RNA sequence: UGGACAAAUUACUGUAUUCACGGCGUGAAACAGGGGCUUACACUAUUUUUAAACGGAAAGUGUAUCAAUUAACAUAAUCGACUCCU
Number, nucleotide and partner (000 for none) at each position: 001u080002g079003g078004a000005c000006a075007a000008a000009u072010u071011a069012c000013u067014g066015u000016a065017u064018u000019c062020a061021c060022g000023g000024c055025g054026u053027g049028a048029a047030a046031c000032a044033g043034g000035g000036g000037c000038u000039u000040a000041c000042a000043c033044u032045a000046u030047u029048u028049u027050u000051a000052a000053a026054c025055g024056g000057a000058a000059a000060g021061u020062g019063u000064a017065u016066c014067a013068a000069u011070u000071a010072a009073c000074a000075u006076a000077a000078u003079c002080g001081a000082c000083u000084c000085c000086u000
MIR6152 microRNA precursor family: an 86-nucleotide RNA sequence from Nicotiana tabacum. Rfam 15.1 lists 5,807 matches to the family in 3 species. Lineage of the source: Eukaryota > Tracheophyta > eudicotyledons > Nicotianeae > Nicotiana.